RNA sequence: AUUGACGUUUUUUUUGACCUGUCGGCCGUGGCAGUCUUCCUUCCUAGCCAUGGAAGAGCACAUUCUUAUUUACUGGCAAAGCUGUCACCACUUAACGGGCAUUAGAUUCUGACUUGCACAGGUAACCUC
Numbered sequence: 001a002u003u004g005a006c007g008u009u010u011u012u013u014u015u016g017a018c019c020u021g022u023c024g025g026c027c028g029u030g031g032c033a034g035u036c037u038u039c040c041u042u043c044c045u046a047g048c049c050a051u052g053g054a055a056g057a058g059c060a061c062a063u064u065c066u067u068a069u070u071u072a073c074u075g076g077c078a079a080a081g082c083u084g085u086c087a088c089c090a091c092u093u094a095a096c097g098g099g100c101a102u103u104a105g106a107u108u109c110u111g112a113c114u115u116g117c118a119c120a121g122g123u124a125a126c127c128u129c
Stems, first nucleotide, its partner, number of pairs: 002054002005051001007049001016039001017037001019034005069125002073121003076117004082105003088099002

Shown here is a 129-nucleotide RNA sequence from Neogale vison, a member of the family "Small nucleolar RNA SNORA24". A search with the family's covariance model found it, with a score of 95 bits. From the family's description: ACA24 is a member of the H/ACA class of snoRNA that guide the sites of modification of uridines to pseudouridines. The family's RNA type in Rfam is H/ACA-box small nucleolar RNA.